[Rfam]
RNA sequence: UUCAGAUGAUUUGAACUGAUAAGCUGAGGCUCUAUGAGGAAUGACAGUUAAGAGCAUAUUAAAGUUGUUAUGAAA
Number, nucleotide and partner (000 for none) at each position: 001u074002u073003c072004a071005g000006a000007u000008g000009a000010u000011u000012u000013g000014a000015a000016c000017u000018g000019a000020u000021a000022a000023g000024c000025u000026g000027a000028g000029g000030c000031u000032c000033u000034a000035u000036g000037a000038g000039g000040a000041a000042u000043g000044a000045c000046a000047g000048u000049u000050a000051a000052g000053a000054g000055c000056a000057u000058a000059u000060u000061a000062a000063a000064g000065u000066u000067g000068u000069u000070a000071u004072g003073a002074a001075a000
RNA: Small nucleolar RNA SNORD28
Organism: Macaca mulatta